[Rfam]
RNA sequence: GCUUGGAUAAGGUCUUCUAUUUUGUGAGUUAGGCCAAAAUAAACACUUUAUCCUUGAGG
Numbered sequence: 001g002c003u004u005g006g007a008u009a010a011g012g013u014c015u016u017c018u019a020u021u022u023u024g025u026g027a028g029u030u031a032g033g034c035c036a037a038a039a040u041a042a043a044c045a046c047u048u049u050a051u052c053c054u055u056g057a058g059g
Stems, first nucleotide, its partner, number of pairs: 002056001005053008018041007026034001

Rfam assigns this 59-nucleotide RNA from Monodelphis domestica to the family "mir-7386 microRNA precursor family".
Pairs were carried over by alignment from the consensus structure, which was predicted with RNAalifold.
Lineage of the source: Eukaryota > Gnathostomata > Sarcopterygii > Didelphinae > Monodelphis.
Gene Ontology terms of the family: RISC complex and miRNA-mediated post-transcriptional gene silencing.